[Rfam]
RNA sequence: AUAGCAGCGGUCGCCGCAUUUCGCAUCAAUCUUUCGCCUUUUACUAAAGAUUGCCGUGCGGCGUCCGCAUUCAAUGCAUCUUUUCUAAUUUUUUCUGGCGCUCCGGCGCCUA
Numbered sequence: 001a002u003a004g005c006a007g008c009g010g011u012c013g014c015c016g017c018a019u020u021u022c023g024c025a026u027c028a029a030u031c032u033u034u035c036g037c038c039u040u041u042u043a044c045u046a047a048a049g050a051u052u053g054c055c056g057u058g059c060g061g062c063g064u065c066c067g068c069a070u071u072c073a074a075u076g077c078a079u080c081u082u083u084u085c086u087a088a089u090u091u092u093u094u095c096u097g098g099c100g101c102u103c104c105g106g107c108g109c110c111u112a
Base pairs, nucleotide, nucleotide: 004077005076006075008067009066010065012063013062014061015060016059017058018057027053028052029051030050031049032048033047034046097110098109099108100107101106
Shown here is a 112-nucleotide RNA sequence from Babesia bovis, a member of the family "U5 spliceosomal RNA". It is annotated as a spliceosomal small nuclear RNA. Rfam's curators write: U5 RNA is a component of both types of known spliceosome. Its family is annotated with spliceosomal tri-snRNP complex assembly and U5 snRNP in the Gene Ontology. The base pairs follow the family's consensus structure, which is taken from published work. The organism belongs to Babesia, within Eukaryota.